[Rfam]
RNA sequence: CCUGCACUACAAACUCGUUGGGCCUCUAUUUUGUAAUUGGAUGGCUCAAGUCAAAAUGUGCAGAUAGAAACAAAGCUUGUCGCCUUCCCUGACUAGAUCCAUGUUGGUGGAAGUGAAUUGAAGCUGUAACAAUC
Numbered sequence: 001c002c003u004g005c006a007c008u009a010c011a012a013a014c015u016c017g018u019u020g021g022g023c024c025u026c027u028a029u030u031u032u033g034u035a036a037u038u039g040g041a042u043g044g045c046u047c048a049a050g051u052c053a054a055a056a057u058g059u060g061c062a063g064a065u066a067g068a069a070a071c072a073a074a075g076c077u078u079g080u081c082g083c084c085u086u087c088c089c090u091g092a093c094u095a096g097a098u099c100c101a102u103g104u105u106g107g108u109g110g111a112a113g114u115g116a117a118u119u120g121a122a123g124c125u126g127u128a129a130c131a132a133u134c
Base pairs, nucleotide, nucleotide: 002063003062004061005060006059007058020047021046022045023044024043027039028038072127074125075124076123077122078121084113085112086111087110088109089107090106091105092104093103
RNA: Small nucleolar RNA SNORA68
Organism: Branchiostoma belcheri